[Rfam]
RNA sequence: AGGAUUACCCUUACAAAAACACUGACUUUGGUUCUCAAUACAGUAAGUGCUUUUUGUUGGGGUAGCUUUG
Numbered sequence: 001a002g003g004a005u006u007a008c009c010c011u012u013a014c015a016a017a018a019a020c021a022c023u024g025a026c027u028u029u030g031g032u033u034c035u036c037a038a039u040a041c042a043g044u045a046a047g048u049g050c051u052u053u054u055u056g057u058u059g060g061g062g063u064a065g066c067u068u069u070g
Stems, first nucleotide, its partner, number of pairs: 005065007013057005018051001020049004025044003
RNA: miR-430 microRNA precursor family